[Rfam]
A member of the RNA family "2dG-I riboswitch aptamer (M. florum)" from Mesoplasma florum, 63 nucleotides long.
Rfam links the family to the GO terms regulation of DNA-templated transcription, termination and deoxyribonucleoside binding.
RNA sequence: ACUUAUACAGGGUAGCAUAUUGGGCUACUGUUCCGCCUCAAGACCAAUCUUGAGACUAUAAGU
Numbered sequence: 001a002c003u004u005a006u007a008c009a010g011g012g013u014a015g016c017a018u019a020u021u022g023g024g025c026u027a028c029u030g031u032u033c034c035g036c037c038u039c040a041a042g043a044c045c046a047a048u049c050u051u052g053a054g055a056c057u058a059u060a061a062g063u
Stems, first nucleotide, its partner, number of pairs: 001063007008035001011029006022045002030036001037054007